[Rfam]
RNA sequence: GUGCAUCUAAUAGGAAUUAAACCUAAAAAUUUGCCAAUUAUGAGUUAGCCACUUUAACCAUUUAGCUAUGAAUGC
Numbered sequence: 001g002u003g004c005a006u007c008u009a010a011u012a013g014g015a016a017u018u019a020a021a022c023c024u025a026a027a028a029a030u031u032u033g034c035c036a037a038u039u040a041u042g043a044g045u046u047a048g049c050c051a052c053u054u055u056a057a058c059c060a061u062u063u064a065g066c067u068a069u070g071a072a073u074g075c
Stems, first nucleotide, its partner, number of pairs: 003075004008070001011025004040069003044066005
Rfam assigns this 75-nucleotide sequence from Hevea brasiliensis to the family "Plastid-ycf2 5UTR RNA".
About the family: Plastid ycf2 is a non-coding RNA (ncRNA) recognised in plastids. It was found in the prime untranslated region (5UTR) of ycf2 genes, it presents a tRNA-like motif which suggests it can be involved in mRNA maturation, particularly involved in defining the precise 5' end of the transcript.
It scores 66 bits against the family's covariance model.
The source organism's lineage runs through Eukaryota, Euphyllophyta, Magnoliopsida, Malpighiales and Hevea.